[Rfam]
RNA sequence: UGGUUUGAAAGGGGAGCUUGUUUCCUCAUGCCUCCCAUCCUUUCUAUGGGGAAGUAUGAGGAAACGGGGCUCUCCUUCCAUUUCU
Numbered sequence: 001u002g003g004u005u006u007g008a009a010a011g012g013g014g015a016g017c018u019u020g021u022u023u024c025c026u027c028a029u030g031c032c033u034c035c036c037a038u039c040c041u042u043u044c045u046a047u048g049g050g051g052a053a054g055u056a057u058g059a060g061g062a063a064a065c066g067g068g069g070c071u072c073u074c075c076u077u078c079c080a081u082u083u084c085u
Stems, first nucleotide, its partner, number of pairs: 002084002006080002009077009018067003022063010033052002035049004